[Rfam]
RNA sequence: AGGCCCAGCUCCCGCCCUCUCCGCGGAGCAGUGAAGCGGGGGUUCCGGCUGGGCCUACACAGGGAUGAUGAGCUUUUGCUUUGCUGAAGAGUGAUGAGCACGCCCUUCACUGACCUCUUUCUUCUAA
Numbered sequence: 001a002g003g004c005c006c007a008g009c010u011c012c013c014g015c016c017c018u019c020u021c022c023g024c025g026g027a028g029c030a031g032u033g034a035a036g037c038g039g040g041g042g043u044u045c046c047g048g049c050u051g052g053g054c055c056u057a058c059a060c061a062g063g064g065a066u067g068a069u070g071a072g073c074u075u076u077u078g079c080u081u082u083g084c085u086g087a088a089g090a091g092u093g094a095u096g097a098g099c100a101c102g103c104c105c106u107u108c109a110c111u112g113a114c115c116u117c118u119u120u121c122u123u124c125u126a127a
Stems, first nucleotide, its partner, number of pairs: 001056010014043004021039004